This 261-nucleotide RNA from Nannospalax galili belongs to the Rfam family "Mason-Pfizer monkey virus packaging signal".
Rfam classes the family as a cis-regulatory element.
Rfam 15.1 lists 2,921 matches to the family in 53 species.
Pairs were carried over by alignment from the consensus structure, which was predicted with PFOLD.
The match comes from Rfam's covariance-model search (169 bits).
About the family: This family represents a group of sequences that are related to the Mason-Pfizer monkey virus (MPMV) packaging signal. The packaging signal is located in the 5' UTR and is required for specific RNA encapsidation.
[Rfam]
RNA sequence: UGGCGCCCAAUGUGGGGCUGGAUACUGGGGGCAUCUCGUGAGGGAGACGAGAGAAAAAGGAAGGAGUACACUUGUUCAAUUUCAAGCAGUUCGGAGAAGCACCGCGGAAAGGUAAGUUGUGCCAUCCGAUCAUGGGGCAAGAAUUGAGCCAGCAUCAGAUUUAUGUCAAGCAAUUGAGAGAGGCUCUAAAGACACGAGGAGUAAAGGUUAGGACAGCUGAUUUAUUUAAUUUCUUUUAUUUUGUAAAGGACAUUUGUCCCU
Numbered sequence: 001u002g003g004c005g006c007c008c009a010a011u012g013u014g015g016g017g018c019u020g021g022a023u024a025c026u027g028g029g030g031g032c033a034u035c036u037c038g039u040g041a042g043g044g045a046g047a048c049g050a051g052a053g054a055a056a057a058a059g060g061a062a063g064g065a066g067u068a069c070a071c072u073u074g075u076u077c078a079a080u081u082u083c084a085a086g087c088a089g090u091u092c093g094g095a096g097a098a099g100c101a102c103c104g105c106g107g108a109a110a111g112g113u114a115a116g117u118u119g120u121g122c123c124a125u126c127c128g129a130u131c132a133u134g135g136g137g138c139a140a141g142a143a144u145u146g147a148g149c150c151a152g153c154a155u156c157a158g159a160u161u162u163a164u165g166u167c168a169a170g171c172a173a174u175u176g177a178g179a180g181a182g183g184c185u186c187u188a189a190a191g192a193c194a195c196g197a198g199g200a201g202u203a204a205a206g207g208u209u210a211g212g213a214c215a216g217c218u219g220a221u222u223u224a225u226u227u228a229a230u231u232u233c234u235u236u237u238a239u240u241u242u243g244u245a246a247a248g249g250a251c252a253u254u255u256g257u258c259c260c261u
Stems, first nucleotide, its partner, number of pairs: 006031003012025003036050004086113002090109002120139003125136004145188002148184003196236006205223006246261001248259004